[Rfam]
RNA sequence: CUUUAUAAAUUUGUUGUCAAAUGAAAAUGAAACAAUUAAAUAACUGGUGGUGGAAAACUCUUAACUUACGUUAGUGAGACCAUCUUGUUAUAUAUAAAUAAUAACUAAAAAAGGCUUAUC
Numbered sequence: 001c002u003u004u005a006u007a008a009a010u011u012u013g014u015u016g017u018c019a020a021a022u023g024a025a026a027a028u029g030a031a032a033c034a035a036u037u038a039a040a041u042a043a044c045u046g047g048u049g050g051u052g053g054a055a056a057a058c059u060c061u062u063a064a065c066u067u068a069c070g071u072u073a074g075u076g077a078g079a080c081c082a083u084c085u086u087g088u089u090a091u092a093u094a095u096a097a098a099u100a101a102u103a104a105c106u107a108a109a110a111a112a113g114g115c116u117u118a119u120c
Stems, first nucleotide, its partner, number of pairs: 036097003040093003043089001045087003049084004058078003061074001063072003
A member of the RNA family "Bacteroidete tryptophan peptide leader RNA" from Tenacibaculum jejuense, 120 nucleotides long. The family's RNA type in Rfam is cis-regulatory leader. Lineage of the source: Bacteria > Pseudomonadati > Flavobacteriia > Flavobacteriaceae > Tenacibaculum. The family's consensus secondary structure is taken from published work. Its family is annotated with regulation of gene expression and S-adenosylmethionine metabolic process in the Gene Ontology.